Bacterial large subunit ribosomal RNA: a 230-nucleotide part of an RNA from Lactobacillus psittaci. Pairs were carried over by alignment from the consensus structure, which is taken from published work. Rfam links the family to the GO terms ribosome and structural constituent of ribosome.
[Rfam]
RNA sequence: GAGUUACGUUAAAUAGCAAGGUUAAGUGAGAAAAGACGGAGCCGUAGCGAAAGCGAGUCUGAAUAGGGCGAGAAGUUAUUUGACGUAGACCCGAAACCAAGUGACCUACCCAUGUCCAGGUUGAAGGCCAGGUAAAACUGGCUGGAGGACCGAACCCACGUAAGUUAAAAAUUGCGGGGAUGAGGUGUGGGUAGCGGUGAAAUUCCAAACGAACUUGGAGAUAGCUGGUU
Numbered sequence: 001g002a003g004u005u006a007c008g009u010u011a012a013a014u015a016g017c018a019a020g021g022u023u024a025a026g027u028g029a030g031a032a033a034a035g036a037c038g039g040a041g042c043c044g045u046a047g048c049g050a051a052a053g054c055g056a057g058u059c060u061g062a063a064u065a066g067g068g069c070g071a072g073a074a075g076u077u078a079u080u081u082g083a084c085g086u087a088g089a090c091c092c093g094a095a096a097c098c099a100a101g102u103g104a105c106c107u108a109c110c111c112a113u114g115u116c117c118a119g120g121u122u123g124a125a126g127g128c129c130a131g132g133u134a135a136a137a138c139u140g141g142c143u144g145g146a147g148g149a150c151c152g153a154a155c156c157c158a159c160g161u162a163a164g165u166u167a168a169a170a171a172u173u174g175c176g177g178g179g180a181u182g183a184g185g186u187g188u189g190g191g192u193a194g195c196g197g198u199g200a201a202a203u204u205c206c207a208a209a210c211g212a213a214c215u216u217g218g219a220g221a222u223a224g225c226u227g228g229u230u
Stems, first nucleotide, its partner, number of pairs: 005087013020043004026037002047054002057069004090228002093225001097218006106194011117182001119151004126143006155179003159176005196206002